[Rfam]
RNA sequence: CCGGCAGCCCAAAGGGGGCCGGAAGCCGGGGACGCAGUUUCCGACGCGUCUCCUUUCCAACUCGCUUUACGGAGGAUUUGGUCAUGAGAA
Numbered sequence: 001c002c003g004g005c006a007g008c009c010c011a012a013a014g015g016g017g018g019c020c021g022g023a024a025g026c027c028g029g030g031g032a033c034g035c036a037g038u039u040u041c042c043g044a045c046g047c048g049u050c051u052c053c054u055u056u057c058c059a060a061c062u063c064g065c066u067u068u069a070c071g072g073a074g075g076a077u078u079u080g081g082u083c084a085u086g087a088g089a090a
Base pairs, nucleotide, nucleotide: 001022002021003020004019005018008016009015032049033048034047035046050088051087052086054084057081058080059079060078062076063075065074066073067072
Rfam assigns this 90-nucleotide RNA from Rhizobium sp. BK275 to the family "Repression of heat shock gene expression (ROSE) element". A reference for the family is Balsiger et al. (2004), "Replicon-specific regulation of small heat shock genes in Agrobacterium tumefaciens", J Bacteriol. The family's consensus secondary structure is taken from published work. From the family's description: This family represents a 5' UTR cis-regulatory element found in heat shock mRNAs and is known as the ROSE (repression of heat shock gene expression) element. The ROSE element is a negative regulator of heat shock gene expression. The secondary structure is thought to be regulated by temperature. It scores 48 bits against the family's covariance model. Taxonomically the source falls in Rhizobium (Bacteria, Pseudomonadati, Alphaproteobacteria, Rhizobiaceae). Rfam links the family to the GO terms regulation of translation and response to temperature stimulus.